[Rfam]
Shown here is a 75-nucleotide sequence from Pipistrellus kuhlii, a member of the family "mir-9223 microRNA precursor family". Taxonomically the source falls in Pipistrellus (Eukaryota, Craniata, Eutheria, Boreoeutheria).
RNA sequence: GAUGGUUGUUGGGUGAUGCACCCUAGAAUUGGGCUUCCUCCUCUCUGGUUCUGGGUGCAUCACCCAAGAAUCACA
Numbered sequence: 001g002a003u004g005g006u007u008g009u010u011g012g013g014u015g016a017u018g019c020a021c022c023c024u025a026g027a028a029u030u031g032g033g034c035u036u037c038c039u040c041c042u043c044u045c046u047g048g049u050u051c052u053g054g055g056u057g058c059a060u061c062a063c064c065c066a067a068g069a070a071u072c073a074c075a
Base pairs, nucleotide, nucleotide: 003073005071006070007069009067010066011065012064013063014062015061016060017059019057020056021055022054023053025052026051027050028049029048030047031046032045033044